[Rfam]
RNA sequence: CCCCGGGUUAAAACCCGGGGCUAUUCAUGUUUCAUCCCUUCGGGAUU
Numbered sequence: 001c002c003c004c005g006g007g008u009u010a011a012a013a014c015c016c017g018g019g020g021c022u023a024u025u026c027a028u029g030u031u032u033c034a035u036c037c038c039u040u041c042g043g044g045a046u047u
Stems, first nucleotide, its partner, number of pairs: 001020008034046005
Acido-Lenti-1 RNA: a 47-nucleotide sequence from Gracilimonas mengyeensis. The family's RNA type in Rfam is small RNA. Pairs were carried over by alignment from the consensus structure, which is taken from published work. NCBI's taxonomy places the organism under Bacteria, Pseudomonadati, Balneolota, Balneolaceae, Gracilimonas.